Rfam assigns this 331-nucleotide sequence from Ibidorhyncha struthersii to the family "7SK RNA". The family's RNA type in Rfam is non-coding RNA gene. Pairs were carried over by alignment from the consensus structure, which is taken from published work. NCBI's taxonomy places the organism under Eukaryota, Teleostomi, Archosauria, Coelurosauria, Ibidorhyncha. The literature on the family includes a 2002 paper in Curr Biol by Blencowe, "Transcription: surprising role for an elusive small nuclear RNA". About the family: 7SK was discovered as an abundant small nuclear RNA in the mid-70s but a possible function has only recently been suggested. Two independent studies have found that 7SK RNA binds the CDK9/cyclin T complex (known as elongation factor P-TEFb). P-TEFb activates transcription by phosphorylating the C-terminal domain of RNA polymerase II. This process is negatively regulated by the 7SK RNP. The secondary structure of 7SK RNA shown here was proposed by Wasserman and Steitz on the basis of chemical modification and enzymatic cleavage experiments. This family contains a number of annotated pseudogenes and 7SK derived repeats.

[Rfam]
RNA sequence: AGAUGUGAGGGAGAUCUGGUUGCAACAUCUGUCACCCCAUUGAUCGCCAGGGUUGAUUCGGCUGAUUCGGCUGAUCUGGCUGGCUAGGCAGGUGUCCCCUUCCUCCCCCACCACUCCAUCUGCGUCCCUCCCGAAGCUGCAUGCUUGGUCAAAGAGGACAGCCUUUCCCGACAGAGACACACUGUUCAUCAGUCAAGGGUAUAUGGUAGCUGUGCUCCCCUGCUAGAACCUCCAAACAAGAUAGUCCUGCUAAACACGUGAGGUCAUUUCUCUCUUACGUUUUGUAAUCACUCACACUUUUUUUUUUUCAUUUGCUUAGAAAAAAACAAGU
Dot-bracket structure: .((.(((.(((.((...((.....(((((((((.(((((..(((((((....................))).)))))))..))...)))))))))..)).))..))).)))...))...........(((((((.((.....))))))((.....(((......)))..))..)))................................(........((.(((.......(.....(...........)...)....))).))........).......................(((.(((((((...........))..)))))..)))
Numbered sequence: 001a002g003a004u005g006u007g008a009g010g011g012a013g014a015u016c017u018g019g020u021u022g023c024a025a026c027a028u029c030u031g032u033c034a035c036c037c038c039a040u041u042g043a044u045c046g047c048c049a050g051g052g053u054u055g056a057u058u059c060g061g062c063u064g065a066u067u068c069g070g071c072u073g074a075u076c077u078g079g080c081u082g083g084c085u086a087g088g089c090a091g092g093u094g095u096c097c098c099c100u101u102c103c104u105c106c107c108c109c110a111c112c113a114c115u116c117c118a119u120c121u122g123c124g125u126c127c128c129u130c131c132c133g134a135a136g137c138u139g140c141a142u143g144c145u146u147g148g149u150c151a152a153a154g155a156g157g158a159c160a161g162c163c164u165u166u167c168c169c170g171a172c173a174g175a176g177a178c179a180c181a182c183u184g185u186u187c188a189u190c191a192g193u194c195a196a197g198g199g200u201a202u203a204u205g206g207u208a209g210c211u212g213u214g215c216u217c218c219c220c221u222g223c224u225a226g227a228a229c230c231u232c233c234a235a236a237c238a239a240g241a242u243a244g245u246c247c248u249g250c251u252a253a254a255c256a257c258g259u260g261a262g263g264u265c266a267u268u269u270c271u272c273u274c275u276u277a278c279g280u281u282u283u284g285u286a287a288u289c290a291c292u293c294a295c296a297c298u299u300u301u302u303u304u305u306u307u308u309c310a311u312u313u314g315c316u317u318a319g320a321a322a323a324a325a326a327c328a329a330g331u
Stems, first nucleotide, its partner, number of pairs: 002116002005111003009107003013102002018099002025095009035083002037079003042076004046071003128176003131148004136144002149171002156167003209272001218263002221260003231253001237249001296331003300326005305319002